[Rfam]
The record is a 76-nucleotide RNA sequence from Alkaliphilus oremlandii, which matches "Glycine riboswitch aptamer" in Rfam. The match comes from Rfam's covariance-model search (50 bits). Taxonomically the source falls in Alkaliphilus oremlandii (Bacteria, Bacillati, Peptostreptococcales, Alkaliphilus).
RNA sequence: CUCUGGAGAGACCGUAAACGCGGCGCCGUAGGAGAAAUACUUUUUAGUGUAGAAACUCUCAGGCACAAAUACAGAG
Numbered sequence: 001c002u003c004u005g006g007a008g009a010g011a012c013c014g015u016a017a018a019c020g021c022g023g024c025g026c027c028g029u030a031g032g033a034g035a036a037a038u039a040c041u042u043u044u045u046a047g048u049g050u051a052g053a054a055a056c057u058c059u060c061a062g063g064c065a066c067a068a069a070u071a072c073a074g075a076g
Stems, first nucleotide, its partner, number of pairs: 001076005012023004025064003028060001032058003038051002